This 36-nucleotide RNA from Chrysochloris asiatica belongs to the Rfam family "XIST RNA A repeat".
A reference for the family is Duszczyk et al. (2011), "The Xist RNA A-repeat comprises a novel AUCG tetraloop fold and a platform for multimerization", RNA.
It scores 49 bits against the family's covariance model.
Rfam classes the family as a small RNA.
Taxonomically the source falls in Chrysochloris (Eukaryota, Euteleostomi, Sarcopterygii, Chrysochlorinae).
RNA sequence: UUGCCCAUCGGGGCUGCGGAUACCUGUUUUUUUGUU
Numbered sequence: 001u002u003g004c005c006c007a008u009c010g011g012g013g014c015u016g017c018g019g020a021u022a023c024c025u026g027u028u029u030u031u032u033u034g035u036u
Stems, first nucleotide, its partner, number of pairs: 003014004017026003
Dot-bracket structure: ..((((....))))..(((....)))..........